A member of the RNA family "Eukaryotic large subunit ribosomal RNA" from Sparassis crispa, 426 nucleotides of a longer RNA.
A search with the family's covariance model found it, with a score of 3352 bits.
The literature on the family includes a 2001 paper in Science by Yusupov et al., "Crystal structure of the ribosome at 5.5 A resolution".
The source organism's lineage runs through Eukaryota, Basidiomycota, Agaricomycetes, Polyporales and Sparassis.

RNA sequence: UGACCUCAAAUCAGGUAGGACUACCCGCUGAACUUAAGCAUAUCAAUAAGCGGAGGAAAAGAAACUAACAAGGAUUCCCCUAGUAACUGCGAGUGAAGCGGGAAGAGCUCAAAUUUAAAAUCUGGCGGCGUCCUCGUCGUCCGAGUUGUAAUCUGGAGAAGCGACAUCCGCGCUGGACCGUGUACAAGUCUCUUGGAAAAGAGCGUCGUAGAGGGUGACAAUCCCGUCUUUGACACGGACCGCCAGGGCUUUGUGAUGCGCUCUCGAUGAGUCGAGUUGUUUGGGAAUGCAGCUCAAAAUGGGUGGUAAAUUCCAUCUAAAGCUAAAUAUUGGCGAGAGACCGAUAGCGAACAAGUACCGUGAGGGAAAGAUGAAAAGAACUUUGGAAAGAGAGUUAAACAGUAUGUGAAAUCGCUGAAAGGGAAA
Numbered sequence: 001u002g003a004c005c006u007c008a009a010a011u012c013a014g015g016u017a018g019g020a021c022u023a024c025c026c027g028c029u030g031a032a033c034u035u036a037a038g039c040a041u042a043u044c045a046a047u048a049a050g051c052g053g054a055g056g057a058a059a060a061g062a063a064a065c066u067a068a069c070a071a072g073g074a075u076u077c078c079c080c081u082a083g084u085a086a087c088u089g090c091g092a093g094u095g096a097a098g099c100g101g102g103a104a105g106a107g108c109u110c111a112a113a114u115u116u117a118a119a120a121u122c123u124g125g126c127g128g129c130g131u132c133c134u135c136g137u138c139g140u141c142c143g144a145g146u147u148g149u150a151a152u153c154u155g156g157a158g159a160a161g162c163g164a165c166a167u168c169c170g171c172g173c174u175g176g177a178c179c180g181u182g183u184a185c186a187a188g189u190c191u192c193u194u195g196g197a198a199a200a201g202a203g204c205g206u207c208g209u210a211g212a213g214g215g216u217g218a219c220a221a222u223c224c225c226g227u228c229u230u231u232g233a234c235a236c237g238g239a240c241c242g243c244c245a246g247g248g249c250u251u252u253g254u255g256a257u258g259c260g261c262u263c264u265c266g267a268u269g270a271g272u273c274g275a276g277u278u279g280u281u282u283g284g285g286a287a288u289g290c291a292g293c294u295c296a297a298a299a300u301g302g303g304u305g306g307u308a309a310a311u312u313c314c315a316u317c318u319a320a321a322g323c324u325a326a327a328u329a330u331u332g333g334c335g336a337g338a339g340a341c342c343g344a345u346a347g348c349g350a351a352c353a354a355g356u357a358c359c360g361u362g363a364g365g366g367a368a369a370g371a372u373g374a375a376a377a378g379a380a381c382u383u384u385g386g387a388a389a390g391a392g393a394g395u396u397a398a399a400c401a402g403u404a405u406g407u408g409a410a411a412u413c414g415c416u417g418a419a420a421g422g423g424a425a426a
Stems, first nucleotide, its partner, number of pairs: 024055001025053005035042002065072002076103004086094002106324004113152003118147002121144002124141004158265002160262004165258004170249002173246004178238006188204001190203004207211001214224002274295007301318005358365002381392004
Dot-bracket structure: .......................((((((.....((....))......))))).).........((....))...((((......((.....)).....))))..((((...(((..((.((.((((..........)))).)).))..))).....((((((.((((.((.((((.((((((....(.((((......)))))..(...)..((.......))........))))))....)))).)).....)))))))).))........(((((((........))))))).....(((((........)))))..)))).................................((....))...............((((....))))..................................